Overview
A member of the RNA family "Plastid-ycf3 group II-D1 intron" from Triticum aestivum, 47 nucleotides long. Its family is annotated with Group II intron splicing in the Gene Ontology. Rfam describes the family as follows. Plastid rpl16 is a non-coding RNA (ncRNA) recognised in plastids. It was recognised in and intronic region of a ribosome rpl16 gene. For this family Rfam cites "Retrograde signaling in plants: A critical review focusing on the GUN pathway and beyond" (Richter et al., Plant Commun, 2023). It scores 59 bits against the family's covariance model.
[Rfam]
RNA sequence: AUUCCUUUCGUCGUGUAUCCUCGAUUGAUGCAGCCUUAGAUACUUCU
Number, nucleotide and partner (000 for none) at each position: 001a000002u000003u000004c000005c000006u000007u000008u000009c000010g025011u024012c023013g022014u000015g000016u000017a000018u000019c000020c000021u000022c013023g012024a011025u010026u000027g000028a000029u000030g000031c000032a044033g043034c000035c000036u000037u000038a000039g000040a000041u000042a000043c033044u032045u000046c000047u000